[Rfam]
RNA sequence: GUGUUUUUCAUGGUAUUAGAUUUAAGGUUAAUUACAACGGGUGAGUCGUGAGACUCGCCCGUUGUAAUUUCUG
Numbered sequence: 001g002u003g004u005u006u007u008u009c010a011u012g013g014u015a016u017u018a019g020a021u022u023u024a025a026g027g028u029u030a031a032u033u034a035c036a037a038c039g040g041g042u043g044a045g046u047c048g049u050g051a052g053a054c055u056c057g058c059c060c061g062u063u064g065u066a067a068u069u070u071c072u073g
Stems, first nucleotide, its partner, number of pairs: 039060007